[Rfam]
RNA sequence: AGCUGCGCAGUGAGCACAGAGCGAACUAUUCUUUCGCCUUUUACUAAAGAAUACCGUGUGCUCGCUGCAACUAGCAGCAUACGCUAAUUUUUGGAAGGUUCGCCUUAACUGGCAG
Numbered sequence: 001a002g003c004u005g006c007g008c009a010g011u012g013a014g015c016a017c018a019g020a021g022c023g024a025a026c027u028a029u030u031c032u033u034u035c036g037c038c039u040u041u042u043a044c045u046a047a048a049g050a051a052u053a054c055c056g057u058g059u060g061c062u063c064g065c066u067g068c069a070a071c072u073a074g075c076a077g078c079a080u081a082c083g084c085u086a087a088u089u090u091u092u093g094g095a096a097g098g099u100u101c102g103c104c105u106u107a108a109c110u111g112g113c114a115g
Stems, first nucleotide, its partner, number of pairs: 003077004008067011027053008099115002
RNA: U5 spliceosomal RNA
Organism: Punica granatum